Shown here is a 68-nucleotide RNA from Ciona savignyi, a member of the family "ciona-mir-92 microRNA precursor family". Rfam's curators put it in the seed alignment. The source organism's lineage runs through Eukaryota, Opisthokonta, Bilateria, Cionidae and Ciona. Rfam links the family to the GO terms miRNA-mediated post-transcriptional gene silencing and RISC complex.
[Rfam]
RNA sequence: UAUGCCUAGACCAGACAAAGUGUAUUGCGUUGUUGCAAUCGUAUUGCACUUGUCCCGGUCUAAGCAUU
Numbered sequence: 001u002a003u004g005c006c007u008a009g010a011c012c013a014g015a016c017a018a019a020g021u022g023u024a025u026u027g028c029g030u031u032g033u034u035g036c037a038a039u040c041g042u043a044u045u046g047c048a049c050u051u052g053u054c055c056c057g058g059u060c061u062a063a064g065c066a067u068u
Base pairs, nucleotide, nucleotide: 002067003066004065005064007062008061009060010059011058012057015053016052017051019050020049021048022047023046024045026043027042028041